Notes
This 414-nucleotide RNA sequence from Plesiomonas shigelloides belongs to the Rfam family "cspA thermoregulator". The literature on the family includes a 2010 paper in Mol Cell by Giuliodori et al., "The cspA mRNA is a thermosensor that modulates translation of the cold-shock protein CspA". Lineage of the source: Bacteria > Pseudomonadati > Gammaproteobacteria > Enterobacterales > Plesiomonas shigelloides.

RNA sequence: AACGCUUCGCUACACCGCUUAACUUUGUUAGUACGUUGUCCUGAAGAUUUUCGUUCAAUUGGUCAUCAUAAAUAUUUCUUUAUUCUGGCUAGAACGCGCUAUGCGUAAUGUUUAACUUUUAAAGAUUUUCAGGAGACAUCAUGUCUAAAUCUACUGGUACCGUUAAGUGGUUCAACGAAGAGAAAGGUUUUGGUUUCAUCACUCAAGAUAACGGCGGUGCUGACGUAUUCGUUCACUUCCGCGCUAUCCAGAGCGAAGGCUUCAAGACCCUGGCUGAAGGUCAAAAGGUUUCUUUUGACGUUGAACAAGGCCAGAAAGGUCCUCAAGCAGCUAACGUAAUCAAGCUGUAAUUGAGUCCUCCUACGGAACUUCGGUUUCGUAAGACAAAAAGCAUCCUUAGGGAUGCUUUUUUUA
Numbered sequence: 001a002a003c004g005c006u007u008c009g010c011u012a013c014a015c016c017g018c019u020u021a022a023c024u025u026u027g028u029u030a031g032u033a034c035g036u037u038g039u040c041c042u043g044a045a046g047a048u049u050u051u052c053g054u055u056c057a058a059u060u061g062g063u064c065a066u067c068a069u070a071a072a073u074a075u076u077u078c079u080u081u082a083u084u085c086u087g088g089c090u091a092g093a094a095c096g097c098g099c100u101a102u103g104c105g106u107a108a109u110g111u112u113u114a115a116c117u118u119u120u121a122a123a124g125a126u127u128u129u130c131a132g133g134a135g136a137c138a139u140c141a142u143g144u145c146u147a148a149a150u151c152u153a154c155u156g157g158u159a160c161c162g163u164u165a166a167g168u169g170g171u172u173c174a175a176c177g178a179a180g181a182g183a184a185a186g187g188u189u190u191u192g193g194u195u196u197c198a199u200c201a202c203u204c205a206a207g208a209u210a211a212c213g214g215c216g217g218u219g220c221u222g223a224c225g226u227a228u229u230c231g232u233u234c235a236c237u238u239c240c241g242c243g244c245u246a247u248c249c250a251g252a253g254c255g256a257a258g259g260c261u262u263c264a265a266g267a268c269c270c271u272g273g274c275u276g277a278a279g280g281u282c283a284a285a286a287g288g289u290u291u292c293u294u295u296u297g298a299c300g301u302u303g304a305a306c307a308a309g310g311c312c313a314g315a316a317a318g319g320u321c322c323u324c325a326a327g328c329a330g331c332u333a334a335c336g337u338a339a340u341c342a343a344g345c346u347g348u349a350a351u352u353g354a355g356u357c358c359u360c361c362u363a364c365g366g367a368a369c370u371u372c373g374g375u376u377u378c379g380u381a382a383g384a385c386a387a388a389a390a391g392c393a394u395c396c397u398u399a400g401g402g403a404u405g406c407u408u409u410u411u412u413u414a
Base pairs, nucleotide, nucleotide: 001011003009004008019206020205022203024201031197035195037193039187040186042184048182049181050180051179052177053176054175055174057172058171059170060169064143065142066141068139069138077134078133079132080131082129110116111115145157146156147155209303210302211301212300213299222230223229235289236288237287238286243282244280245279248273249272250271251270255268308323309322310321324353325352326351328347329346330345331344332343362381363380364379366377367376368375369374386411387410388409389408390407391406392405393404394403395402396401